[Rfam]
RNA sequence: UGCCAAGGUAUUCUCACGAUUCUCUUGCUGUUGCUGUAUGCUGUACCUUUGGUA
Numbered sequence: 001u002g003c004c005a006a007g008g009u010a011u012u013c014u015c016a017c018g019a020u021u022c023u024c025u026u027g028c029u030g031u032u033g034c035u036g037u038a039u040g041c042u043g044u045a046c047c048u049u050u051g052g053u054a
Base pairs, nucleotide, nucleotide: 001054002053003052004051005050006049007047008046009045010044011043018041027034028033
This 54-nucleotide RNA sequence from Pachycephala philippinensis belongs to the Rfam family "Avian HBV RNA encapsidation signal epsilon". Rfam 15.1 lists 22 matches to the family in 17 species. A reference for the family is Beck and Nassal (1997), "Sequence- and structure-specific determinants in the interaction between the RNA encapsidation signal and reverse transcriptase of avian hepatitis B viruses", J Virol. Pairs were carried over by alignment from the consensus structure, which is taken from published work.